[Rfam]
RNA sequence: CUUUCCUCACCAAAUACAGAUCUGUGUUCAGCGAUCCUGAUCGCACCGAGUGUUUUCUCCUCCCCCGGGAGCGAAAACCAUCUUGGAUUGCGUUUCGGUUGAUUUCUGGACAGCUCGACGUCACAUGGAGCCAUCUUUUCUUUCCCGAUGAUGUCAAUUUCCGGUCGACAGAUCUCAGAAUAAAAUCCAGCAGCCGGAUGUUCACUCUGCCUUGAGCUCCCCCUUCUCACGAAGGGGUGAAUUCGGUGAGAUGCCCCGUGCUAUUGGAGGCGUCAUAUUCCGUCUCUCUUUACCGAUUAGGUUCCUUUCCUUCAGGAAGGAAUCGUGGCCGUCGGCUGAUGAGGUCAGGGACUAACCAUGACUUGCCAACAUAC
Number, nucleotide and partner (000 for none) at each position: 001c000002u000003u000004u000005c000006c000007u000008c000009a000010c000011c000012a000013a000014a000015u000016a000017c000018a175019g174020a173021u172022c171023u170024g169025u168026g111027u110028u109029c108030a107031g106032c000033g104034a103035u102036c101037c098038u097039g096040a095041u000042c092043g091044c000045a088046c000047c086048g000049a000050g000051u000052g000053u000054u000055u000056u000057c000058u000059c000060c000061u000062c000063c000064c000065c000066c000067g000068g000069g000070a000071g000072c000073g000074a000075a000076a000077a000078c000079c000080a000081u000082c000083u000084u000085g000086g047087a000088u045089u000090g000091c043092g042093u000094u000095u040096c039097g038098g037099u000100u000101g036102a035103u034104u033105u000106c031107u030108g029109g028110a027111c026112a000113g000114c000115u000116c000117g000118a000119c167120g166121u000122c164123a000124c000125a000126u156127g155128g154129a000130g152131c000132c150133a000134u000135c000136u000137u000138u000139u000140c000141u000142u000143u000144c000145c000146c000147g000148a000149u000150g132151a000152u130153g000154u128155c127156a126157a000158u000159u000160u000161c000162c000163g000164g122165u000166c120167g119168a025169c024170a023171g022172a021173u020174c019175u018176c000177a000178g000179a000180a000181u000182a000183a000184a000185a000186u000187c000188c000189a262190g000191c000192a000193g000194c000195c258196g257197g256198a000199u000200g000201u000202u000203c000204a000205c000206u000207c000208u248209g247210c246211c245212u000213u000214g244215a243216g242217c000218u240219c239220c237221c236222c235223c234224u233225u232226c231227u000228c000229a000230c000231g226232a225233a224234g223235g222236g221237g220238u000239g219240a218241a000242u216243u215244c214245g211246g210247u209248g208249a000250g000251a000252u000253g000254c000255c000256c197257c196258g195259u000260g000261c000262u189263a000264u000265u000266g000267g000268a000269g367270g366271c365272g362273u361274c360275a359276u358277a000278u000279u000280c000281c000282g000283u000284c000285u351286c350287u349288c348289u347290u000291u000292a345293c344294c343295g000296a000297u000298u000299a000300g000301g000302u000303u000304c000305c000306u000307u000308u000309c000310c000311u000312u000313c000314a000315g000316g000317a000318a000319g000320g000321a000322a000323u000324c000325g000326u000327g337328g336329c335330c334331g000332u000333c000334g330335g329336c328337u327338g000339a000340u000341g000342a000343g294344g293345u292346c000347a289348g288349g287350g286351a285352c000353u000354a000355a000356c000357c000358a276359u275360g274361a273362c272363u000364u000365g271366c270367c269368a000369a000370c000371a000372u000373a000374c000
The family of this 374-nucleotide RNA from Polytolypa hystricis is "A. fumigatus sRNA Afu_309". Taxonomically the source falls in Polytolypa hystricis (Eukaryota, saccharomyceta, Eurotiomycetes, Polytolypa).